Rfam assigns this 92-nucleotide RNA sequence from Actinomyces graevenitzii to the family "SAM riboswitch aptamer (S box leader)". The base pairs follow the family's consensus structure, which is taken from published work. The family has 457 seed sequences and 9,625 matches in Rfam 15.1.
RNA sequence: AGACCAUCAAGAGCAGCCGAGAGACCUGGAUCGUUGAAGCUGCAGCAACCCCCCAUUUCGGGUGCGGGUGCUACUGCCAGGAACGAUGGAGG
Number, nucleotide and partner (000 for none) at each position: 001a000002g000003a000004c089005c088006a087007u086008c085009a000010a000011g000012a000013g043014c042015a041016g040017c039018c000019g000020a000021g032022a031023g000024a000025c000026c080027u079028g078029g077030a000031u022032c021033g000034u000035u000036g000037a000038a000039g017040c016041u015042g014043c013044a072045g071046c070047a069048a000049c068050c067051c064052c000053c062054c061055a000056u000057u000058u000059c000060g000061g054062g053063u000064g051065c000066g000067g050068g049069u047070g046071c045072u044073a000074c000075u000076g084077c029078c028079a027080g026081g000082a000083a000084c076085g008086a007087u006088g005089g004090a000091g000092g000